This 117-nucleotide RNA belongs to the Rfam family "Betaproteobacteria-1 RNA".
RNA sequence: CGUCUAGCUGUCGGGGGAACAAACGGCAGGGCUAGAGGAAAGCUGGUACUGUGGGAAAGUGUUGAGAUACCAGAAGGGGUGGCGAAGCUAGUGCCCCUACACGCAAGACUGGCGAGU
Number, nucleotide and partner (000 for none) at each position: 001c038002g000003u036004c035005u034006a033007g032008c031009u030010g000011u000012c000013g000014g000015g000016g000017g000018a000019a000020c000021a000022a000023a000024c000025g000026g052027c051028a050029g049030g009031g008032c007033u006034a005035g004036a003037g000038g001039a000040a000041a000042g000043c073044u072045g071046g070047u069048a068049c029050u028051g027052u026053g000054g000055g000056a000057a000058a000059g102060u101061g100062u099063u000064g000065a000066g000067a000068u048069a047070c046071c045072a044073g043074a000075a098076g097077g096078g095079g094080u093081g000082g000083c000084g000085a000086a000087g113088c112089u111090a110091g109092u108093g080094c079095c078096c077097c076098u075099a062100c061101a060102c059103g000104c000105a000106a000107g000108a092109c091110u090111g089112g088113c087114g000115a000116g000117u000

The base pairs follow the family's consensus structure, which is taken from published work.